The record is a 175-nucleotide RNA from Lachnospiraceae bacterium 3_1_57FAA_CT1, which matches "Lysine riboswitch aptamer" in Rfam. Rfam links the family to the GO term lysine biosynthetic process. Taxonomically the source falls in Lachnospiraceae (Bacteria, Bacillati, Bacillota, Lachnospirales). It scores 105 bits against the family's covariance model. Pairs were carried over by alignment from the consensus structure, which is taken from published work.
[Rfam]
RNA sequence: UUUUUAGAUAGAGGUUGCGUGAUUCAGGAGUACCUUUUCGGAUGUGACAGGCACAGAAGAAGAAAAGGGAAAGGGGAGAGCGCCGAAAGAGGAGGGGGCCUGGUGCCUGAAUCUUGGGCAUGCGGUGAAGAACCGUAUGACUGUCAUCUGUAAAAGAUGGGGCGCUAUCAUAAAG
Numbered sequence: 001u002u003u004u005u006a007g008a009u010a011g012a013g014g015u016u017g018c019g020u021g022a023u024u025c026a027g028g029a030g031u032a033c034c035u036u037u038u039c040g041g042a043u044g045u046g047a048c049a050g051g052c053a054c055a056g057a058a059g060a061a062g063a064a065a066a067g068g069g070a071a072a073g074g075g076g077a078g079a080g081c082g083c084c085g086a087a088a089g090a091g092g093a094g095g096g097g098g099c100c101u102g103g104u105g106c107c108u109g110a111a112u113c114u115u116g117g118g119c120a121u122g123c124g125g126u127g128a129a130g131a132a133c134c135g136u137a138u139g140a141c142u143g144u145c146a147u148c149u150g151u152a153a154a155a156g157a158u159g160g161g162g163c164g165c166u167a168u169c170a171u172a173a174a175g
Stems, first nucleotide, its partner, number of pairs: 007169005017083004023077003033068007087115004094108003098104001116142002119139008144160006